[Rfam]
Shown here is a 347-nucleotide sequence from Psittacicella melopsittaci, a member of the family "Bacterial RNase P class A".
RNA sequence: UGAGUAGAUUCGAGUAAUCGCUUGUUCACUUUGAAUAAGAGGAAAGUCCGGACUCCAAUGGGCAUAGUGCCAGGUAACGCCUGGGAAGUUUGCAAAAACUUACGACUAGUGCAACAGAAAGUAUACCGCCUAUUUCGGUAGGUAAGGGUGAAACGGUGAGGUAAGAGCUCACCAGGCAGUUCAGCAAUGACUGUGCUUGGUAAACUCCACUCGGAGCAAGAUCAAAUAGGUGUUCAUAUAACGCGCCCAUCGUUGAACACGGGUAGAUCGCUUGAGGCUAACAGUGAUGUUAGUCCUAGAUGAAUGAUUACAUAAAACAAAAUCCGGCUUAUGGAAUAGCUUAGCAG
Numbered sequence: 001u002g003a004g005u006a007g008a009u010u011c012g013a014g015u016a017a018u019c020g021c022u023u024g025u026u027c028a029c030u031u032u033g034a035a036u037a038a039g040a041g042g043a044a045a046g047u048c049c050g051g052a053c054u055c056c057a058a059u060g061g062g063c064a065u066a067g068u069g070c071c072a073g074g075u076a077a078c079g080c081c082u083g084g085g086a087a088g089u090u091u092g093c094a095a096a097a098a099c100u101u102a103c104g105a106c107u108a109g110u111g112c113a114a115c116a117g118a119a120a121g122u123a124u125a126c127c128g129c130c131u132a133u134u135u136c137g138g139u140a141g142g143u144a145a146g147g148g149u150g151a152a153a154c155g156g157u158g159a160g161g162u163a164a165g166a167g168c169u170c171a172c173c174a175g176g177c178a179g180u181u182c183a184g185c186a187a188u189g190a191c192u193g194u195g196c197u198u199g200g201u202a203a204a205c206u207c208c209a210c211u212c213g214g215a216g217c218a219a220g221a222u223c224a225a226a227u228a229g230g231u232g233u234u235c236a237u238a239u240a241a242c243g244c245g246c247c248c249a250u251c252g253u254u255g256a257a258c259a260c261g262g263g264u265a266g267a268u269c270g271c272u273u274g275a276g277g278c279u280a281a282c283a284g285u286g287a288u289g290u291u292a293g294u295c296c297u298a299g300a301u302g303a304a305u306g307a308u309u310a311c312a313u314a315a316a317a318c319a320a321a322a323u324c325c326g327g328c329u330u331a332u333g334g335a336a337u338a339g340c341u342u343a344g345c346a347g
Stems, first nucleotide, its partner, number of pairs: 001343005008337004012332001014311006021039008044330003048327005053216004061248002066211004070084005085103001086101006104207002109205002111201002126147002128143006155173006175196001176194005182189002220269004230260006240254004276295008
A search with the family's covariance model found it, with a score of 282 bits. Rfam links the family to the GO terms tRNA processing, ribonuclease P activity and dimeric ribonuclease P complex.